[Rfam]
RNA sequence: GUUGCUGUGCCAUCCGGUGGAUGGCUUGGCUCGAGAACCGAAGAAGGACGUGCCAAGCUGCGAUAAGCCCGGGGGAGGCGCAAGGAGCCCCUGAUCCCGGGAUCUCCUAAUGAGAACUCUCUCCCACAAAGGGAAGCCCGAUAAGGGCUGGGAACGCCCCGAGUUGAAACAUCUGCGUAGGGGCAGGAAAAGAAACCAAACUGGGAUGCUGCUAGUAACGGCGAGUGAACACAGCAAAUUAGCCUAAACCGAAUCCCCCCUAGUAAUAGGGGGGAGAUGUGGUGUUGCAGGACCGGUCUUUUAGCCUGGUUGUUGUGAGGCCGACUCCCCUGGAACGGGGGGCCGUAGAGGGUGAUAGCCCCGUGGCCGAAACAAUAACAAGGUGUGACCGGGAUCCUGAGUACCGUGGGCCGGAAACCUCGCGGGAAACCGGGGGACACAUUCCUCCAAGGCUGAACAUACCUCGAGACCGAUAGCGUAAUAGUAGAGUGAUCGAAAGCUGAAAAGCACCCCGAAAAGGGAGGUUAAAAGAGCCUGAAACCGGAUGGCUAUGGAGC
Number, nucleotide and partner (000 for none) at each position: 001g000002u000003u000004g000005c000006u000007g000008u000009g549010c548011c547012a546013u545014c544015c543016g542017g541018u000019g000020g000021a000022u000023g535024g500025c499026u000027u000028g471029g470030c468031u467032c466033g465034a464035g463036a000037a460038c000039c000040g000041a000042a000043g000044a000045a108046g107047g106048a105049c062050g061051u060052g000053c000054c000055a000056a000057g000058c000059u000060g051061c050062g049063a000064u000065a000066a000067g000068c101069c100070c099071g098072g097073g096074g000075g000076a000077g089078g088079c087080g000081c000082a000083a000084g000085g000086a000087g079088c078089c077090c000091c000092u000093g000094a000095u000096c073097c072098c071099g070100g069101g068102a000103u000104c000105u048106c047107c046108u045109a000110a000111u000112g121113a120114g119115a000116a000117c000118u000119c114120u113121c112122u000123c000124c000125c000126a000127c000128a000129a000130a000131g000132g000133g000134a000135a000136g148137c147138c146139c145140g000141a000142u000143a000144a000145g139146g138147g137148c136149u000150g000151g000152g000153a000154a000155c186156g184157c183158c182159c181160c180161g000162a000163g000164u000165u000166g173167a172168a000169a000170c000171a000172u167173c166174u000175g000176c000177g000178u000179a000180g160181g159182g158183g157184c156185a000186g155187g000188a000189a000190a000191a000192g000193a000194a000195a000196c204197c203198a000199a000200a000201c000202u000203g197204g196205g000206a000207u000208g235209c234210u233211g232212c000213u000214a000215g000216u000217a000218a226219c225220g000221g000222c000223g000224a000225g219226u218227g000228a000229a000230c000231a000232c211233a210234g209235c208236a000237a000238a000239u000240u000241a454242g453243c452244c451245u000246a000247a000248a000249c282250c281251g280252a000253a000254u000255c000256c000257c000258c000259c270260c269261u268262a267263g000264u000265a000266a000267u262268a261269g260270g259271g000272g000273g000274g000275a000276g000277a000278u000279g000280u251281g250282g249283u000284g000285u000286u000287g000288c000289a000290g000291g000292a000293c392294c391295g390296g389297u000298c000299u000300u000301u000302u000303a384304g000305c382306c000307u000308g000309g000310u000311u000312g000313u000314u000315g000316u000317g000318a000319g368320g367321c366322c000323g000324a000325c341326u000327c340328c339329c338330c337331u000332g000333g000334a000335a000336c000337g330338g329339g328340g327341g325342g000343c000344c348345g000346u000347a000348g344349a000350g362351g361352g360353u000354g000355a000356u000357a000358g000359c000360c352361c351362c350363g000364u000365g000366g321367c320368c319369g000370a000371a000372a000373c000374a000375a000376u000377a000378a000379c000380a000381a000382g305383g000384u303385g000386u000387g000388a000389c296390c295391g294392g293393g000394a000395u000396c000397c000398u000399g000400a000401g000402u000403a000404c425405c424406g423407u422408g421409g420410g419411c000412c000413g000414g000415a000416a000417a000418c000419c410420u409421c408422g407423c406424g405425g404426g000427a000428a000429a000430c000431c000432g448433g447434g446435g445436g444437a000438c000439a000440c000441a000442u000443u000444c436445c435446u434447c433448c432449a000450a000451g244452g243453c242454u241455g000456a000457a000458c000459a000460u037461a000462c000463c035464u034465c033466g032467a031468g030469a000470c029471c028472g000473a000474u000475a000476g000477c000478g000479u000480a000481a000482u000483a000484g000485u000486a000487g494488a493489g000490u000491g000492a000493u488494c487495g000496a000497a000498a000499g025500c024501u000502g000503a000504a000505a000506a000507g000508c000509a000510c000511c000512c000513c000514g000515a000516a000517a000518a000519g000520g000521g000522a000523g000524g000525u000526u000527a000528a000529a000530a000531g000532a000533g000534c000535c023536u000537g000538a000539a000540a000541c017542c016543g015544g014545a013546u012547g011548g010549c009550u000551a000552u000553g000554g000555a000556g000557c000

Archaeal large subunit ribosomal RNA: a 557-nucleotide part of an RNA from Methanocella conradii. Taxonomically the source falls in Methanocella conradii (Archaea, Methanobacteriati, Methanocellales, Methanocella). Rfam links the family to the GO terms structural constituent of ribosome and ribosome.